The family of this 65-nucleotide RNA sequence from Microcaecilia unicolor is "Selenocysteine insertion sequence 1". For this family Rfam cites "A novel RNA structural motif in the selenocysteine insertion element of eukaryotic selenoprotein mRNAs" (Walczak et al., RNA, 1996).
RNA sequence: AUUGCUCCAUGAGGGGAGGUGCUUAAAGGUCCCUCGAGACCUGGCACUUCCCUGAAGAAAGUAUU
Numbered sequence: 001a002u003u004g005c006u007c008c009a010u011g012a013g014g015g016g017a018g019g020u021g022c023u024u025a026a027a028g029g030u031c032c033c034u035c036g037a038g039a040c041c042u043g044g045c046a047c048u049u050c051c052c053u054g055a056a057g058a059a060a061g062u063a064u065u
Stems, first nucleotide, its partner, number of pairs: 001065001003063003014052010029040003
The source organism's lineage runs through Eukaryota, Metazoa, Bilateria, Chordata and Microcaecilia.
The base pairs follow the family's consensus structure, which is taken from published work.
A search with the family's covariance model found it, with a score of 36 bits.